The record is a 201-nucleotide RNA sequence from Capsicum annuum, which matches "Plant small nucleolar RNA U3" in Rfam. Its Rfam clan is "U3 clan". A reference for the family is Zwieb (1997), "The uRNA database", Nucleic Acids Res. Small nucleolar RNAs (snoRNAs) are involved in the processing and modification of rRNA in the nucleolus. There are two main classes of snoRNAs: the box C/D class, and the box H/ACA class. U3 snoRNA is a member of the box C/D class. Indeed, the box C/D element is a subset of the six short sequence elements found in all U3 snoRNAs, namely boxes A, A', B, C, C', and D. The U3 snoRNA secondary structure is characterised by a small 5' domain (with boxes A and A'), and a larger 3' domain (with boxes B, C, C', and D), the two domains being linked by a single-stranded hinge. Pairs were carried over by alignment from the consensus structure, which is taken from published work. The family's RNA type in Rfam is C/D-box small nucleolar RNA. Lineage of the source: Eukaryota > Streptophyta > Tracheophyta > Mesangiospermae > Capsicum.
[Rfam]
RNA sequence: ACCCUUUACUUGAACAGGAUCUGUUCUAUAGGCUCGUACCACUGUAUCCUUGACUUCUAAGGAGACAAGAAACCAAUUCUGGUUGAUGAGAUUAGAGCGUGAUUAACUGCCAUCCGCGGCAUCUCGAGUUGAGGUGCAGUAGAUGGUCGUUCUUAGACCCGAGUUCAGGCCUAAGAUGGUCUCAUGGAUGUCUGACAGACU
Numbered sequence: 001a002c003c004c005u006u007u008a009c010u011u012g013a014a015c016a017g018g019a020u021c022u023g024u025u026c027u028a029u030a031g032g033c034u035c036g037u038a039c040c041a042c043u044g045u046a047u048c049c050u051u052g053a054c055u056u057c058u059a060a061g062g063a064g065a066c067a068a069g070a071a072a073c074c075a076a077u078u079c080u081g082g083u084u085g086a087u088g089a090g091a092u093u094a095g096a097g098c099g100u101g102a103u104u105a106a107c108u109g110c111c112a113u114c115c116g117c118g119g120c121a122u123c124u125c126g127a128g129u130u131g132a133g134g135u136g137c138a139g140u141a142g143a144u145g146g147u148c149g150u151u152c153u154u155a156g157a158c159c160c161g162a163g164u165u166c167a168g169g170c171c172u173a174a175g176a177u178g179g180u181c182u183c184a185u186g187g188a189u190g191u192c193u194g195a196c197a198g199a200c201u
Stems, first nucleotide, its partner, number of pairs: 002032002006030001012026006043067003047063006078199004083188002086185009096151004106140005114134002117131004122126001153174004158169002161166001